Overview:
Rfam assigns this 60-nucleotide sequence from Aquarana catesbeiana to the family "mir-33 microRNA precursor family". The source organism's lineage runs through Eukaryota, Opisthokonta, Teleostomi, Tetrapoda and Aquarana. The base pairs follow the family's consensus structure, which was predicted with PFOLD. Rfam 15.1 lists 1,467 matches to the family in 815 species. Gene Ontology terms of the family: RISC complex and gene silencing by miRNA.

[Rfam]
RNA sequence: CCACUUUGCACUACAAGUGCACUGCAAGUGUACUUGCAGUGCACUUGUAGUGCAAAGUGG
Numbered sequence: 001c002c003a004c005u006u007u008g009c010a011c012u013a014c015a016a017g018u019g020c021a022c023u024g025c026a027a028g029u030g031u032a033c034u035u036g037c038a039g040u041g042c043a044c045u046u047g048u049a050g051u052g053c054a055a056a057g058u059g060g
Base pairs, nucleotide, nucleotide: 001060002059003058004057006056007054008053009052010051011050012049013048014047015046016045019042021040022039023038024037025036026035027034